[Rfam]
RNA sequence: UAAUGAAGGAAGCAUGGUAAUGUACACAGAGAUUGAUAAUUUAGGUCAACAUGUCUGCUCCCUUGGAUUUAAUUCAUGAUAUGGGGGCCUGGUUAAACCUACAUUU
Numbered sequence: 001u002a003a004u005g006a007a008g009g010a011a012g013c014a015u016g017g018u019a020a021u022g023u024a025c026a027c028a029g030a031g032a033u034u035g036a037u038a039a040u041u042u043a044g045g046u047c048a049a050c051a052u053g054u055c056u057g058c059u060c061c062c063u064u065g066g067a068u069u070u071a072a073u074u075c076a077u078g079a080u081a082u083g084g085g086g087g088c089c090u091g092g093u094u095a096a097a098c099c100u101a102c103a104u105u106u
Stems, first nucleotide, its partner, number of pairs: 012025001014023002043090005053080003057074001059072001